[Rfam]
RNA: Small nucleolar RNA Z102/R77
RNA sequence: AGAUGGUAUGAUGACGAAAUUGUUUCCCUAUUGGUUUGAUUGACCGCCAUGAUGGCUCAACCUGUAUUAGCUCUAUCUGAUCAUCU
Numbered sequence: 001a002g003a004u005g006g007u008a009u010g011a012u013g014a015c016g017a018a019a020u021u022g023u024u025u026c027c028c029u030a031u032u033g034g035u036u037u038g039a040u041u042g043a044c045c046g047c048c049a050u051g052a053u054g055g056c057u058c059a060a061c062c063u064g065u066a067u068u069a070g071c072u073c074u075a076u077c078u079g080a081u082c083a084u085c086u
Stems, first nucleotide, its partner, number of pairs: 002085004038058001042056001044055002